[Rfam]
RNA: mir-143 microRNA precursor family
RNA sequence: AGGUGCAGUGCUGCAUCUCUGGUCAGUUGGGAGUCUGAGAUGAAGCACUGUAGCUCG
Numbered sequence: 001a002g003g004u005g006c007a008g009u010g011c012u013g014c015a016u017c018u019c020u021g022g023u024c025a026g027u028u029g030g031g032a033g034u035c036u037g038a039g040a041u042g043a044a045g046c047a048c049u050g051u052a053g054c055u056c057g
Stems, first nucleotide, its partner, number of pairs: 002054001004052009014042006021035002023032002